RNA sequence: AAACCACGAGAAGAAGUGAAUGGGCCGUGGAUCCUUGUCGGACCUAGGCCCAGGAAAGUCCCCGGGCCACACUCUGCAGAGAUGCAGCAGGCUUGGGAACGAUGCAACUCCUAGUGAUAGGGCGGCUGGGCUGAGACGUGUGUGGAGCCUAGUUGGCCGCCUUGCUGGGAUCAAUUUGGCCAAUAUACCCAACAGUUAUUCACUCUGUUAUUUUACAGAACUGAACGGGGCUUACUUCUUGUGGUU
Numbered sequence: 001a002a003a004c005c006a007c008g009a010g011a012a013g014a015a016g017u018g019a020a021u022g023g024g025c026c027g028u029g030g031a032u033c034c035u036u037g038u039c040g041g042a043c044c045u046a047g048g049c050c051c052a053g054g055a056a057a058g059u060c061c062c063c064g065g066g067c068c069a070c071a072c073u074c075u076g077c078a079g080a081g082a083u084g085c086a087g088c089a090g091g092c093u094u095g096g097g098a099a100c101g102a103u104g105c106a107a108c109u110c111c112u113a114g115u116g117a118u119a120g121g122g123c124g125g126c127u128g129g130g131c132u133g134a135g136a137c138g139u140g141u142g143u144g145g146a147g148c149c150u151a152g153u154u155g156g157c158c159g160c161c162u163u164g165c166u167g168g169g170a171u172c173a174a175u176u177u178g179g180c181c182a183a184u185a186u187a188c189c190c191a192a193c194a195g196u197u198a199u200u201c202a203c204u205c206u207g208u209u210a211u212u213u214u215a216c217a218g219a220a221c222u223g224a225a226c227g228g229g230g231c232u233u234a235c236u237u238c239u240u241g242u243g244g245u246u
Stems, first nucleotide, its partner, number of pairs: 002246008015204005022051005028046003032042003056233003060230004075086004087109001091105002111168003118164010128150004138143001207216002
The family of this 246-nucleotide RNA from Phtheirospermum japonicum is "RNase MRP". Pairs were carried over by alignment from the consensus structure, which is taken from published work. It scores 55 bits against the family's covariance model.